[Rfam]
RNA: Group II catalytic intron D1-D4-1
RNA sequence: UAACCUUGUUUGUGAAAGCAAGCUGAACGUACAGAAGUCAGCAGAAGCCAUAGUACGUUACGUGUUGCAACACGAGCGGAAGGGC
Numbered sequence: 001u002a003a004c005c006u007u008g009u010u011u012g013u014g015a016a017a018g019c020a021a022g023c024u025g026a027a028c029g030u031a032c033a034g035a036a037g038u039c040a041g042c043a044g045a046a047g048c049c050a051u052a053g054u055a056c057g058u059u060a061c062g063u064g065u066u067g068c069a070a071c072a073c074g075a076g077c078g079g080a081a082g083g084g085c
Base pairs, nucleotide, nucleotide: 001025002024005022006021007020008019009018010017011016038045039044047085048084049083056078057077058076062073063072